[Rfam]
RNA sequence: GGAAGCGAAUGUGUCCUGGUGGGCGCCCCGGGCUUCAAACCCGCGCGGGAGGCGGUAUAGGCCGUCUCCGGUGAGUUCGAUUCUCACACGCUUCC
Numbered sequence: 001g002g003a004a005g006c007g008a009a010u011g012u013g014u015c016c017u018g019g020u021g022g023g024c025g026c027c028c029c030g031g032g033c034u035u036c037a038a039a040c041c042c043g044c045g046c047g048g049g050a051g052g053c054g055g056u057a058u059a060g061g062c063c064g065u066c067u068c069c070g071g072u073g074a075g076u077u078c079g080a081u082u083c084u085c086a087c088a089c090g091c092u093u094c095c
Base pairs, nucleotide, nucleotide: 001095002094003093004092005091006090007089011026012025013024014023015022016021027045029043030042031041032040048069049068050067051066052065053064054063072086073085074084075083